[Rfam]
The record is an 81-nucleotide RNA sequence from Streptomyces sp. PTY087I2, which matches "nrdJ RNA" in Rfam.
It is annotated as a small RNA.
RNA sequence: ACCUGUUCCCGUGGCCGAGUGCGGCCCACGGGGCAACGGACACACACUGUGCCUGGGAAGAUCUGGGCACUUCAGGGCGUU
Numbered sequence: 001a002c003c004u005g006u007u008c009c010c011g012u013g014g015c016c017g018a019g020u021g022c023g024g025c026c027c028a029c030g031g032g033g034c035a036a037c038g039g040a041c042a043c044a045c046a047c048u049g050u051g052c053c054u055g056g057g058a059a060g061a062u063c064u065g066g067g068c069a070c071u072u073c074a075g076g077g078c079g080u081u
Stems, first nucleotide, its partner, number of pairs: 004035003008032005013026005049070006055063001